The family of this 81-nucleotide sequence from Novimethylophilus kurashikiensis is "c-di-GMP-I-GGC riboswitch aptamer".
For this family Rfam cites "Recognition of the bacterial second messenger cyclic diguanylate by its cognate riboswitch" (Kulshina et al., Nat Struct Mol Biol, 2009).
Its Rfam clan is "c-di-GMP_I riboswitch clan".
Gene Ontology term of the family: cyclic-di-GMP binding.
A search with the family's covariance model found it, with a score of 70 bits.
RNA sequence: GCUGAUAAAGGCAAACCCGGCGAAAGCCGGGGACGCAAAGCCACCGGCCUAAAAGAAAUCAUGGCAGCGGGGCUCCCGGCA
Numbered sequence: 001g002c003u004g005a006u007a008a009a010g011g012c013a014a015a016c017c018c019g020g021c022g023a024a025a026g027c028c029g030g031g032g033a034c035g036c037a038a039a040g041c042c043a044c045c046g047g048c049c050u051a052a053a054a055g056a057a058a059u060c061a062u063g064g065c066a067g068c069g070g071g072g073c074u075c076c077c078g079g080c081a
Stems, first nucleotide, its partner, number of pairs: 003078002011036002016031006034067001039074004044070003047065003